[Rfam]
RNA sequence: CGGUCAUAAACGCUGAAUCCAGAGAUGGAGCGGAAGAACCAAUUUUUGGGGUGAGUCCCGGCUUUGCCGGGUAGGGUUAGCUUUCGACCCGAAUCCGUCAGCUAAUUUCGUAAGCGUUGAAAGAGAAGGUGA
Numbered sequence: 001c002g003g004u005c006a007u008a009a010a011c012g013c014u015g016a017a018u019c020c021a022g023a024g025a026u027g028g029a030g031c032g033g034a035a036g037a038a039c040c041a042a043u044u045u046u047u048g049g050g051g052u053g054a055g056u057c058c059c060g061g062c063u064u065u066g067c068c069g070g071g072u073a074g075g076g077u078u079a080g081c082u083u084u085c086g087a088c089c090c091g092a093a094u095c096c097g098u099c100a101g102c103u104a105a106u107u108u109c110g111u112a113a114g115c116g117u118u119g120a121a122a123g124a125g126a127a128g129g130u131g132a
Base pairs, nucleotide, nucleotide: 011116012115013114014113018029019028020027030111031110032109033108034107035106040048041047049096050095051094057071058070059069060068074090075089076088077087
c-di-AMP riboswitch aptamer (ydaO/yuaA leader): a 132-nucleotide sequence from Hydrogenispora ethanolica. The organism belongs to Hydrogenispora, within Bacteria.